[Rfam]
RNA sequence: CCGGGGGGCCGGGCAGCCGCGUCAUCGCAAGAUGUCGAGGAAAGUCCGGGCUCCGCGAAACAAGGGUGGCGGGUAACGCCCGCCGAGUGAGCCUUCGGGCGAAGCUCAGGGAAAGUGCCACAGAGAGUAUACCGCCGAUGGCCCCCGCUUCUUCGGGAGUGAUGGCACAGGCAAGGGUGAAAGGGUGCGGCAAGAGCGCACCGGGGGGCCGGUAACGGUUCCCGUCAUGGCAAACCCCACCCGGAGCAAGACCGCAUAGGGGUCUCGCGCCGCAAGGCAGGGGCGUUUCGUCCCGAGAGACCCGGGUUGGUCGCUGGAGCGGCGGAGCAAUCCGUUGCCGAGAUGAAUGGCUGCCACCGCAGCGCUGAUGUGCAAGCAUAUCGGCUGUGGGACAGAACCCGGCUUACAGGCCCCCCGGCACA
Number, nucleotide and partner (000 for none) at each position: 001c418002c417003g416004g415005g414006g413007g412008g411009c410010c409011g407012g355013g354014c353015a352016g351017c350018c349019g000020c037021g036022u000023c034024a033025u032026c031027g000028c000029a000030a000031g026032a025033u024034g023035u000036c021037g020038a000039g000040g000041a000042a405043a404044g403045u000046c402047c401048g400049g399050g398051c246052u245053c244054c243055g000056c000057g000058a000059a000060a288061c000062a286063a000064g242065g241066g240067u239068g238069g083070c082071g081072g080073g079074u000075a000076a000077c000078g000079c073080c072081c071082g070083c069084c109085g107086a106087g105088u104089g000090a000091g000092c000093c000094u000095u000096c000097g000098g000099g000100c000101g000102a000103a000104g088105c087106u086107c085108a000109g084110g237111g236112a000113a000114a000115g235116u234117g231118c230119c229120a000121c000122a000123g000124a000125g000126a000127g000128u000129a000130u000131a000132c176133c175134g172135c171136c170137g000138a000139u167140g166141g000142c164143c000144c000145c000146c000147g000148c000149u000150u000151c000152u000153u000154c000155g000156g000157g000158a000159g000160u000161g000162a000163u000164g142165g000166c140167a139168c000169a000170g136171g135172c134173a000174a000175g133176g132177g000178u000179g000180a000181a000182a000183g000184g202185g201186u200187g199188c198189g197190g000191c000192a000193a000194g000195a000196g000197c189198g188199c187200a186201c185202c184203g226204g223205g222206g221207g220208g219209c218210c217211g216212g000213u000214a000215a000216c211217g210218g209219u208220u207221c206222c205223c204224g000225u000226c203227a000228u000229g119230g118231c117232a000233a000234a116235c115236c111237c110238c068239a067240c066241c065242c064243g054244g053245a052246g051247c000248a000249a000250g312251a311252c310253c309254g000255c000256a000257u000258a000259g000260g303261g302262g301263u300264c299265u298266c000267g000268c000269g000270c000271c000272g000273c000274a000275a000276g000277g000278c000279a000280g294281g293282g292283g291284c290285g000286u062287u000288u060289c000290g284291u283292c282293c281294c280295g000296a000297g000298a265299g264300a263301c262302c261303c260304g000305g000306g000307u000308u000309g253310g252311u251312c250313g000314c000315u000316g000317g000318a000319g338320c337321g336322g335323c334324g333325g332326a331327g000328c000329a000330a000331u326332c325333c324334g323335u322336u321337g320338c319339c000340g000341a000342g000343a000344u000345g000346a000347a000348u000349g018350g017351c016352u015353g014354c013355c012356a000357c000358c000359g000360c000361a000362g000363c000364g000365c000366u000367g000368a000369u000370g000371u000372g000373c000374a000375a000376g000377c000378a000379u000380a000381u000382c000383g000384g000385c000386u000387g000388u000389g000390g000391g000392a000393c000394a000395g000396a000397a000398c050399c049400c048401g047402g046403c044404u043405u042406a000407c011408a000409g010410g009411c008412c007413c006414c005415c004416c003417g002418g001419c000420a000421c000422a000
Rfam assigns this 422-nucleotide RNA sequence from Aurantiacibacter atlanticus to the family "Bacterial RNase P class A". A search with the family's covariance model found it, with a score of 269 bits. Taxonomically the source falls in Aurantiacibacter (Bacteria, Pseudomonadota, Alphaproteobacteria, Sphingomonadales).